[Rfam]
This 192-nucleotide sequence from Pseudogulbenkiania sp. belongs to the Rfam family "permuted transfer-messenger RNA". It is annotated as a non-coding RNA gene.

RNA sequence: CGCUGUACGACUGCAAAGGGUAAGGCAUGCUGGACGCGGGUUCGAUUCCCGCCAGCUCCACCAUCGACGGGGCUGACCUGGUUUCGACAGGGUGAGAUAGCCGGAGCAGCAGCGGGAAAGGUGACCGACCUUAACGGCACACAACUCUUAAAUGCAAACUUUGACAUUUACGAUGUUCAGCACGUUGCCUAA
Numbered sequence: 001c002g003c004u005g006u007a008c009g010a011c012u013g014c015a016a017a018g019g020g021u022a023a024g025g026c027a028u029g030c031u032g033g034a035c036g037c038g039g040g041u042u043c044g045a046u047u048c049c050c051g052c053c054a055g056c057u058c059c060a061c062c063a064u065c066g067a068c069g070g071g072g073c074u075g076a077c078c079u080g081g082u083u084u085c086g087a088c089a090g091g092g093u094g095a096g097a098u099a100g101c102c103g104g105a106g107c108a109g110c111a112g113c114g115g116g117a118a119a120g121g122u123g124a125c126c127g128a129c130c131u132u133a134a135c136g137g138c139a140c141a142c143a144a145c146u147c148u149u150a151a152a153u154g155c156a157a158a159c160u161u162u163g164a165c166a167u168u169u170a171c172g173a174u175g176u177u178c179a180g181c182a183c184g185u186u187g188c189c190u191a192a
Stems, first nucleotide, its partner, number of pairs: 001114005014104001026094003030090003036052005053075007115130002

For this family Rfam cites "BRUCE: a program for the detection of transfer-messenger RNA genes in nucleotide sequences" (Laslett et al., Nucleic Acids Res, 2002). The family's consensus secondary structure is taken from published work.